[Rfam]
RNA sequence: UAUAUUAAAAGGUACAAUCAAGGAAACUUGAUGUCACAAAGCUAUCGGGGCUAAGGGUUAUCAUCUAUGCCAGCCAGCUGCCGUU
Numbered sequence: 001u002a003u004a005u006u007a008a009a010a011g012g013u014a015c016a017a018u019c020a021a022g023g024a025a026a027c028u029u030g031a032u033g034u035c036a037c038a039a040a041g042c043u044a045u046c047g048g049g050g051c052u053a054a055g056g057g058u059u060a061u062c063a064u065c066u067a068u069g070c071c072a073g074c075c076a077g078c079u080g081c082c083g084u085u
Stems, first nucleotide, its partner, number of pairs: 012037002017032006040079004047075002049071003056065003
RNA: c-di-GMP-I riboswitch aptamer
Organism: Peribacillus asahii